Rfam assigns this 84-nucleotide RNA sequence from Bagarius yarrelli to the family "mir-92 microRNA precursor family". Lineage of the source: Eukaryota > Bilateria > Deuterostomia > Osteoglossocephalai > Bagarius. For this family Rfam cites "miRNPs: a novel class of ribonucleoproteins containing numerous microRNAs" (Mourelatos et al., Genes Dev, 2002). This family represents the microRNA precursor mir-92. Its Rfam clan is "mir-92 microRNA precursor clan". The family has 23 seed sequences and 1,347 matches in Rfam 15.1.
RNA sequence: CUUGCUGUGCAGGUUGGGAUCGGUGACAAUGCUGUGUGUAUGCGCUGCAGACGUAUUGCACUUGUCCCGGCCUGUACAGGAGUG
Numbered sequence: 001c002u003u004g005c006u007g008u009g010c011a012g013g014u015u016g017g018g019a020u021c022g023g024u025g026a027c028a029a030u031g032c033u034g035u036g037u038g039u040a041u042g043c044g045c046u047g048c049a050g051a052c053g054u055a056u057u058g059c060a061c062u063u064g065u066c067c068c069g070g071c072c073u074g075u076a077c078a079g080g081a082g083u084g
Stems, first nucleotide, its partner, number of pairs: 005079002009075006016068005022062003027058006